The family of this 85-nucleotide RNA sequence from Nothobranchius furzeri is "mir-15 microRNA precursor family".
Pairs were carried over by alignment from the consensus structure, which was predicted with RNAalifold.
The literature on the family includes a 2001 paper in Science by Lagos-Quintana et al., "Identification of novel genes coding for small expressed RNAs".
Gene Ontology terms of the family: RISC complex and miRNA-mediated post-transcriptional gene silencing.
NCBI's taxonomy places the organism under Eukaryota, Vertebrata, Atherinomorphae, Cyprinodontiformes, Nothobranchius.
Rfam describes the family as follows. This family represents the related mir-15a and mir-15b sequences. In humans miR-15a and miR-16 are clustered within 0.5 kb at 13q14. This region has been shown to be deleted in more than half of B cell chronic lymphocytic leukaemias (CLL). Both miR-15a and miR-16 are deleted or down-regulated in more than two thirds of CLL cases. The mature sequence is excised from the 5' arm of the hairpin.
The match comes from Rfam's covariance-model search (58 bits).
RNA sequence: CCUUAGACUGCUAUAGCAGCGCAUCAUGGUUUGAUACAAUGUGCAAAAGGUGCGAACCAUUAUUUGCUGCUUUAGUAUUCCAAGG
Numbered sequence: 001c002c003u004u005a006g007a008c009u010g011c012u013a014u015a016g017c018a019g020c021g022c023a024u025c026a027u028g029g030u031u032u033g034a035u036a037c038a039a040u041g042u043g044c045a046a047a048a049g050g051u052g053c054g055a056a057c058c059a060u061u062a063u064u065u066g067c068u069g070c071u072u073u074a075g076u077a078u079u080c081c082a083a084g085g
Base pairs, nucleotide, nucleotide: 001085002084003083004082006080013073015071016070017069018068019067020066021065023063024062026060027059028058029057030056031055032054033053035052036051037050